[Rfam]
RNA sequence: CCUCUGCCUGUUGACUGGCACAUGGUGGAUCAGUACCUCUGUGCAUCACAUUUGGAGGUAGAUUAGAGCCAGUGCUAUGCCUUCGGUACCGGUGCAUUUUUGGUCAUCGGGUGCUAUUCUCAAAACCUGGUACAUAA
Dot-bracket structure: (((((............(((.(.(((........)))).)))...........)))))...........(((................((((((..........)))).))...............)))........
The family of this 137-nucleotide sequence from Denticeps clupeoides is "Small nucleolar RNA SNORA57". U99 belongs to the H/ACA class of snoRNAs which are thought to guide the sites of modification of uridines to pseudouridines, the target for this family is unknown. It scores 42 bits against the family's covariance model. Taxonomically the source falls in Denticeps (Eukaryota, Chordata, Actinopteri, Teleostei).